A member of the RNA family "Small nucleolar RNA SNORD72" from Microcaecilia unicolor, 76 nucleotides long. Rfam's curators write: snoRNA HBII-240 belongs to the CD family of snoRNAs. The source organism's lineage runs through Eukaryota, Teleostomi, Dipnotetrapodomorpha, Tetrapoda and Microcaecilia. The match comes from Rfam's covariance-model search (50 bits). Rfam 15.1 lists 726 matches to the family in 499 species. It is annotated as a C/D-box small nucleolar RNA.

RNA sequence: AGCUUAUCAAUUUUGCUUCUAAAAAUGUCUGAACAUAAAAUACUUAGAAUGAUUUCUUUUUGAACUGAGGUAAGCU
Numbered sequence: 001a002g003c004u005u006a007u008c009a010a011u012u013u014u015g016c017u018u019c020u021a022a023a024a025a026u027g028u029c030u031g032a033a034c035a036u037a038a039a040a041u042a043c044u045u046a047g048a049a050u051g052a053u054u055u056c057u058u059u060u061u062g063a064a065c066u067g068a069g070g071u072a073a074g075c076u
Base pairs, nucleotide, nucleotide: 002075003074004073005072006071007070008069